The record is a 926-nucleotide sequence from Salmonella bongori, which matches "antisense RNA of rseC mRNA" in Rfam. The family's consensus secondary structure was predicted with RNAfold.
RNA sequence: ACCUGAGCUUCCAUUUCACGGUCAGACAGGCCACCGCAGAUCUGGAUAAUACGGUCAGACAGCGUCGAUUUACCGUGGUCAAUGUGAGCAAUGAUCGAAAAGUUACGUAUGUUCUUCAUAGAGAUAAAUUAUUAUGCCUUACGCCUGGUUGACCAGACUUUAGAGGUCGCUGUUCUGAGCUUAACGUCUGUUUUAACUGAAACGCCGCAUUCUACACUACAACGCUAAGGCGAGGAAAUGUUCAUAAUGUAAGGAGAGCGGGAACUGGCAAGCGUCUCACUUUUUACGUAAGUCACUGUAACGCCGAAAAAGCCCCUGAUAGCGCAAGCUUAUCGGCCCGACAUCUCCUGCAUGGCAGGAAAAAAUGACCUUAGCAGACCAGCUAAACGCAGCGCUAUCCGGCACAGCGUCUACUGGCGCGUUUCGAUUGAUGUGGUUUCGACGCGAACAAGCUCGGACGGGAGGGCAACGCUUAAAAUCACCGGUUGCCAGGUAUCGCGCUCCGCCAGUUUCCGGGAAUAGCCUCGGGCAAGCAAAAAACCGCCAACGCCACCUAAAACAGCGCCGCUUAAUGCCGCAAGGUCAGAUCCAAACAAUACCUGGAAAAGCACUGCAAAGAGAAAUAACCCCGCUAAAGGCGACAUAUAGACCAACAAUGCCGACCCUAAGAGGCUUUUUUCGGCGAUGCCAAGCUCAACUUUCUGCCCCGGCGACAGCGGCUCCACGCUUGGCACCACAAUUGUAUGAGUCGUUUGCGGCCCUAAUUUAUUCAGCACGCGGCUGCCGCAUCCCGCCCGGGAGGCGCAGUUGCUGCACGAUGUUUUAACAUCACAACUCACGACCGCCUGGCCAUUCCGCCAGGAGACGACCGUCGCCCACUCUUUAAUCAUUGUACUGCCCUGAACUUGAUACUGUCUGCAAUACGC
Numbered sequence: 001a002c003c004u005g006a007g008c009u010u011c012c013a014u015u016u017c018a019c020g021g022u023c024a025g026a027c028a029g030g031c032c033a034c035c036g037c038a039g040a041u042c043u044g045g046a047u048a049a050u051a052c053g054g055u056c057a058g059a060c061a062g063c064g065u066c067g068a069u070u071u072a073c074c075g076u077g078g079u080c081a082a083u084g085u086g087a088g089c090a091a092u093g094a095u096c097g098a099a100a101a102g103u104u105a106c107g108u109a110u111g112u113u114c115u116u117c118a119u120a121g122a123g124a125u126a127a128a129u130u131a132u133u134a135u136g137c138c139u140u141a142c143g144c145c146u147g148g149u150u151g152a153c154c155a156g157a158c159u160u161u162a163g164a165g166g167u168c169g170c171u172g173u174u175c176u177g178a179g180c181u182u183a184a185c186g187u188c189u190g191u192u193u194u195a196a197c198u199g200a201a202a203c204g205c206c207g208c209a210u211u212c213u214a215c216a217c218u219a220c221a222a223c224g225c226u227a228a229g230g231c232g233a234g235g236a237a238a239u240g241u242u243c244a245u246a247a248u249g250u251a252a253g254g255a256g257a258g259c260g261g262g263a264a265c266u267g268g269c270a271a272g273c274g275u276c277u278c279a280c281u282u283u284u285u286a287c288g289u290a291a292g293u294c295a296c297u298g299u300a301a302c303g304c305c306g307a308a309a310a311a312g313c314c315c316c317u318g319a320u321a322g323c324g325c326a327a328g329c330u331u332a333u334c335g336g337c338c339c340g341a342c343a344u345c346u347c348c349u350g351c352a353u354g355g356c357a358g359g360a361a362a363a364a365a366u367g368a369c370c371u372u373a374g375c376a377g378a379c380c381a382g383c384u385a386a387a388c389g390c391a392g393c394g395c396u397a398u399c400c401g402g403c404a405c406a407g408c409g410u411c412u413a414c415u416g417g418c419g420c421g422u423u424u425c426g427a428u429u430g431a432u433g434u435g436g437u438u439u440c441g442a443c444g445c446g447a448a449c450a451a452g453c454u455c456g457g458a459c460g461g462g463a464g465g466g467c468a469a470c471g472c473u474u475a476a477a478a479u480c481a482c483c484g485g486u487u488g489c490c491a492g493g494u495a496u497c498g499c500g501c502u503c504c505g506c507c508a509g510u511u512u513c514c515g516g517g518a519a520u521a522g523c524c525u526c527g528g529g530c531a532a533g534c535a536a537a538a539a540a541c542c543g544c545c546a547a548c549g550c551c552a553c554c555u556a557a558a559a560c561a562g563c564g565c566c567g568c569u570u571a572a573u574g575c576c577g578c579a580a581g582g583u584c585a586g587a588u589c590c591a592a593a594c595a596a597u598a599c600c601u602g603g604a605a606a607a608g609c610a611c612u613g614c615a616a617a618g619a620g621a622a623a624u625a626a627c628c629c630c631g632c633u634a635a636a637g638g639c640g641a642c643a644u645a646u647a648g649a650c651c652a653a654c655a656a657u658g659c660c661g662a663c664c665c666u667a668a669g670a671g672g673c674u675u676u677u678u679u680c681g682g683c684g685a686u687g688c689c690a691a692g693c694u695c696a697a698c699u700u701u702c703u704g705c706c707c708c709g710g711c712g713a714c715a716g717c718g719g720c721u722c723c724a725c726g727c728u729u730g731g732c733a734c735c736a737c738a739a740u741u742g743u744a745u746g747a748g749u750c751g752u753u754u755g756c757g758g759c760c761c762u763a764a765u766u767u768a769u770u771c772a773g774c775a776c777g778c779g780g781c782u783g784c785c786g787c788a789u790c791c792c793g794c795c796c797g798g799g800a801g802g803c804g805c806a807g808u809u810g811c812u813g814c815a816c817g818a819u820g821u822u823u824u825a826a827c828a829u830c831a832c833a834a835c836u837c838a839c840g841a842c843c844g845c846c847u848g849g850c851c852a853u854u855c856c857g858c859c860a861g862g863a864g865a866c867g868a869c870c871g872u873c874g875c876c877c878a879c880u881c882u883u884u885a886a887u888c889a890u891u892g893u894a895c896u897g898c899c900c901u902g903a904a905c906u907u908g909a910u911a912c913u914g915u916c917u918g919c920a921a922u923a924c925g926c
Stems, first nucleotide, its partner, number of pairs: 004279004008274001009270001011268003015264003020154005027147005036137003039130003043126001044115003049110005058104003065098006076090002079087003155189004160184002163182003167178003190203005205261004210256004214250003218246002220235001223232003283321001284310002288304002322926003326922001328919002331911004335348002356902004362893001365890002401876003409869003414861005419445005426438005452851001454849004459844003464837003484760006491754004496719004501712001503710003507704003515695003528545003551640001553638002556633001562627001568620003573615003577611001583603004588598001654687002657684006664672003724749002727746001729744002733740001773814003777811003781807004786803002789800004817830004

Rfam links the family to the GO term positive regulation of gene expression. The source organism's lineage runs through Bacteria, Pseudomonadati, Enterobacterales, Enterobacteriaceae and Salmonella bongori.